RNA sequence: AUAUAAGAAAAAAGUUCACUUUUUAGAUACAUUGAAAGAUUGAUGUAUCUAGACUAUAUUAUAGACUAGAUACAUCAAUCUUUCAAUGUAUCUAAAAAGUGAACUCUUUCUUAUAU
Numbered sequence: 001a002u003a004u005a006a007g008a009a010a011a012a013a014g015u016u017c018a019c020u021u022u023u024u025a026g027a028u029a030c031a032u033u034g035a036a037a038g039a040u041u042g043a044u045g046u047a048u049c050u051a052g053a054c055u056a057u058a059u060u061a062u063a064g065a066c067u068a069g070a071u072a073c074a075u076c077a078a079u080c081u082u083u084c085a086a087u088g089u090a091u092c093u094a095a096a097a098a099g100u101g102a103a104c105u106c107u108u109u110c111u112u113a114u115a116u
Base pairs, nucleotide, nucleotide: 002115003114004113005112006111007110010108011107013105014104016102017101018100019099020098021097022096023095024094025093026092028090029089030088031087032086033085034084035083036082037081038080039079040078041077042076043075044074045073050068051067052066

Background:
Rfam assigns this 116-nucleotide RNA sequence from Trifolium pratense to the family "MIR2593 microRNA precursor family". The match comes from Rfam's covariance-model search (97 bits). The source organism's lineage runs through Eukaryota, Viridiplantae, Streptophyta, rosids and Trifolium.